[Rfam]
RNA sequence: GAUCCGGGUCGCGGGCCGUGGGACGCUCGCGUGGAAUAGGAUCCGCGCCCAUUGCGGACGCGUCGCGGCCGGUCGCCCCGCCGGCUGACGAC
Numbered sequence: 001g002a003u004c005c006g007g008g009u010c011g012c013g014g015g016c017c018g019u020g021g022g023a024c025g026c027u028c029g030c031g032u033g034g035a036a037u038a039g040g041a042u043c044c045g046c047g048c049c050c051a052u053u054g055c056g057g058a059c060g061c062g063u064c065g066c067g068g069c070c071g072g073u074c075g076c077c078c079c080g081c082c083g084g085c086u087g088a089c090g091a092c
Stems, first nucleotide, its partner, number of pairs: 001043005010031007062092004067086005